[Rfam]
RNA sequence: AGAACACACAUUAAUUAUCCCUGGGGUCAUGGGAUAAAAAAAAAAACCCUGCAAAAACAAGUUAGCACACCCUAGAAUGGUUCUAGCAUGAUUACUAACCUAUGACUCUAAGACUAGUUGAAGGGAAAAACCU
Numbered sequence: 001a002g003a004a005c006a007c008a009c010a011u012u013a014a015u016u017a018u019c020c021c022u023g024g025g026g027u028c029a030u031g032g033g034a035u036a037a038a039a040a041a042a043a044a045a046a047c048c049c050u051g052c053a054a055a056a057a058c059a060a061g062u063u064a065g066c067a068c069a070c071c072c073u074a075g076a077a078u079g080g081u082u083c084u085a086g087c088a089u090g091a092u093u094a095c096u097a098a099c100c101u102a103u104g105a106c107u108c109u110a111a112g113a114c115u116a117g118u119u120g121a122a123g124g125g126a127a128a129a130a131c132c133u
Stems, first nucleotide, its partner, number of pairs: 009123001011121006022110012050088002055082002058079002062075004
Dot-bracket structure: ........(.((((((.....((((((((((((................((...((.((..((((......))))..)).))....))..........)))))))))))).....)))))).)..........